Nucleotides: 373
Stems, first nucleotide, its partner, number of pairs: 001369010011358001012338007020060008065356003069353005074243004081275004086239005091105005106120001107118004121234002126232002128228003143173002145169003150166002152163004181199006200223001201221005206215003247295004257286006266280005302321008
Number, partner (000 for none) and nucleotide at each position: 001369g002368a003367a004366g005365u006364c007363g008362g009361c010360u011358g012338g013337a014336c015335a016334g017333u018332c019000g020060c021059u022058g023057u024056u025055a026054u027053c028000c029000c030000g031000u032000c033000u034000g035000a036000u037000c038000u039000c040000u041000a042000u043000g044000a045000g046000a047000u048000g049000g050000c051000g052000c053027g054026a055025u056024a057023a058022u059021g060020g061000a062000g063000g064000a065356a066355a067354g068000u069353c070352c071351g072350g073349g074243c075242u076241c077240c078000a079000c080000a081275g082274g083273g084272c085000a086239g087238g088237g089236u090235g091105c092104c093103a094102g095101g096000u097000a098000a099000c100000g101095c102094c103093u104092g105091g106120g107118a108117g109116g110115c111000g112000a113000a114000a115110g116109c117108c118107u119000a120106c121234g122233g123000a124000a125000a126232g127231u128228g129227c130226c131000a132000c133000a134000g135000a136000g137000a138000u139000c140000a141000g142000a143173c144172c145169g146168c147167c148000g149000a150166u151165g152163g153162c154161u155160g156000c157000u158000u159000g160155c161154a162153g163152c164000a165151c166150a167147g168146g169145u170000a171000a172144g173143g174000g175000u176000g177000a178000a179000a180000a181199g182198g183197u184196g185195c186194g187000g188000u189000a190000a191000g192000a193000g194186c195185g196184c197183a198182c199181c200223g201221c202220g203219c204218g205217g206215g207214u208213g209000g210000c211000a212000a213208c214207a215206u216000a217205c218204c219203g220202c221201g222000g223200c224000a225000c226130g227129g228128u229000a230000a231127a232126c233122c234121c235090c236089a237088c238087u239086c240077g241076g242075a243074g244000c245000a246000a247295g248294a249293c250292c251000a252000a253000a254000u255000a256000g257286g258285g259284a260283c261282c262281c263000a264000u265000u266280g267279g268278c269277g270276u271000g272084g273083c274082c275081c276270g277269c278268g279267c280266u281262g282261g283260g284259u285258c286257c287000g288000g289000g290000u291000a292250g293249g294248u295247u296000g297000c298000u299000a300000g301000a302321g303320c304319c305318g306317g307316a308315u309314g310000g311000c312000g313000a314309c315308a316307u317306c318305c319304g320303g321302u322000c323000g324000a325000g326000a327000u328000g329000a330000a331000u332018g333017a334016c335015u336014g337013u338012c339000c340000c341000c342000g343000a344000c345000a346000g347000a348000a349073c350072c351071c352070g353069g354067c355066u356065u357000a358011c359000a360010g361009g362008c363007c364006g365005a366004c367003u368002u369001c370000c371000g372000c373000c